[Rfam]
Shown here is a 203-nucleotide sequence from Pomatorhinus ruficollis, a member of the family "Small nucleolar RNA SNORA74".
A reference for the family is Bortolin and Kiss (1998), "Human U19 intron-encoded snoRNA is processed from a long primary transcript that possesses little potential for protein coding", RNA.
The family has 24 seed sequences and 1,348 matches in Rfam 15.1.
The source organism's lineage runs through Eukaryota, Archosauria, Coelurosauria, Australaves and Pomatorhinus.
By type it is an H/ACA-box small nucleolar RNA.
The match comes from Rfam's covariance-model search (107 bits).

RNA sequence: CCCAGCACAAGUCAGCUGCCCGUGGCUGCUCAGUGCCUGUGUCAGUGUUACGCUGCUGGGAGAGAAAGGUGCUGCUGAGCUCUCCUGGCACCAGCGGGGCCGUCCUGGCAUUCGGUGGUGCCAGGUUUUGGCAGCACUCUGCAUGCUCGAGAGUGGAGUAACUCCUGCCUGUGGAGUUAGAGCCUAGACUGGAUGCAGACAAC
Numbered sequence: 001c002c003c004a005g006c007a008c009a010a011g012u013c014a015g016c017u018g019c020c021c022g023u024g025g026c027u028g029c030u031c032a033g034u035g036c037c038u039g040u041g042u043c044a045g046u047g048u049u050a051c052g053c054u055g056c057u058g059g060g061a062g063a064g065a066a067a068g069g070u071g072c073u074g075c076u077g078a079g080c081u082c083u084c085c086u087g088g089c090a091c092c093a094g095c096g097g098g099g100c101c102g103u104c105c106u107g108g109c110a111u112u113c114g115g116u117g118g119u120g121c122c123a124g125g126u127u128u129u130g131g132c133a134g135c136a137c138u139c140u141g142c143a144u145g146c147u148c149g150a151g152a153g154u155g156g157a158g159u160a161a162c163u164c165c166u167g168c169c170u171g172u173g174g175a176g177u178u179a180g181a182g183c184c185u186a187g188a189c190u191g192g193a194u195g196c197a198g199a200c201a202a203c
Stems, first nucleotide, its partner, number of pairs: 001060007011051002015046004020041001021039002024037003069137009085125002088121006095114002099109003139198006146191001155184002159179007